[Rfam]
RNA: t44 RNA
Organism: Shewanella amazonensis
RNA sequence: AAUCUGUAAAUACUAAAUCGCACACGUGUCGGCACAUGCCUCGGGGUGCUUCCGGUCAAAGGCCGGGGGUCGAGUUCAUGGGACGCGUGGAGGUCAAAC
Number, nucleotide and partner (000 for none) at each position: 001a000002a000003u000004c000005u000006g000007u000008a000009a000010a000011u000012a000013c000014u000015a000016a000017a000018u000019c000020g000021c000022a000023c089024a088025c087026g086027u085028g084029u083030c082031g000032g000033c000034a000035c080036a079037u078038g077039c000040c074041u073042c072043g071044g000045g000046g000047u000048g070049c069050u068051u067052c066053c000054g000055g000056u000057c000058a000059a000060a000061g000062g000063c000064c000065g000066g052067g051068g050069g049070u048071c043072g042073a041074g040075u000076u000077c038078a037079u036080g035081g000082g030083a029084c028085g027086c026087g025088u024089g023090g000091a000092g000093g000094u000095c000096a000097a000098a000099c000